RNA sequence: AAUUCUGUUCGUAAGAACAAAUAGAAGCAUAUCUAUUCUAUACCGAUAAGUACCAAUACGCACUGUAGG
Numbered sequence: 001a002a003u004u005c006u007g008u009u010c011g012u013a014a015g016a017a018c019a020a021a022u023a024g025a026a027g028c029a030u031a032u033c034u035a036u037u038c039u040a041u042a043c044c045g046a047u048a049a050g051u052a053c054c055a056a057u058a059c060g061c062a063c064u065g066u067a068g069g
Stems, first nucleotide, its partner, number of pairs: 004021001006019005043068001044065001050059003